Notes:
This 70-nucleotide RNA from Sapayoa aenigma belongs to the Rfam family "Small nucleolar RNA SNORD82". Its family is annotated with RNA processing and nucleolus in the Gene Ontology. The organism belongs to Sapayoa, within Eukaryota. It scores 59 bits against the family's covariance model. From the family's description: snoRNA U82 or Z25 is found in both humans and mice. Pairs were carried over by alignment from the consensus structure, which was predicted with PFOLD. Rfam classes the family as a C/D-box small nucleolar RNA. On this family, see Galardi et al., Mol Cell Biol 2002: "Purified box C/D snoRNPs are able to reproduce site-specific 2'-O-methylation of target RNA in vitro".
RNA sequence: AGCACAAAUGAUGAUCCCAGGGGACUUAAUACUGAUGUAUGAUGUCACUUUUGAGCAGAAACUGAUGUGC
Numbered sequence: 001a002g003c004a005c006a007a008a009u010g011a012u013g014a015u016c017c018c019a020g021g022g023g024a025c026u027u028a029a030u031a032c033u034g035a036u037g038u039a040u041g042a043u044g045u046c047a048c049u050u051u052u053g054a055g056c057a058g059a060a061a062c063u064g065a066u067g068u069g070c
Stems, first nucleotide, its partner, number of pairs: 002070005